[Rfam]
RNA sequence: ACCUCAUCCAGAGGGACUGAGGGAACGGCCCUGAGAAGUCCCGGCAACCGCCGCACACCGCGGAAAGGUGCCAAUUCCGUCCGGAGCGAAGGUCGCUGCGGAGAGAUGAGGA
Numbered sequence: 001a002c003c004u005c006a007u008c009c010a011g012a013g014g015g016a017c018u019g020a021g022g023g024a025a026c027g028g029c030c031c032u033g034a035g036a037a038g039u040c041c042c043g044g045c046a047a048c049c050g051c052c053g054c055a056c057a058c059c060g061c062g063g064a065a066a067g068g069u070g071c072c073a074a075u076u077c078c079g080u081c082c083g084g085a086g087c088g089a090a091g092g093u094c095g096c097u098g099c100g101g102a103g104a105g106a107u108g109a110g111g112a
Stems, first nucleotide, its partner, number of pairs: 002111007013042005021031003025080004043072004048068002051063003076104001081101003085097004
SAM riboswitch aptamer (S box leader): a 112-nucleotide sequence from Nocardioides anomalus. The family has 457 seed sequences and 9,625 matches in Rfam 15.1.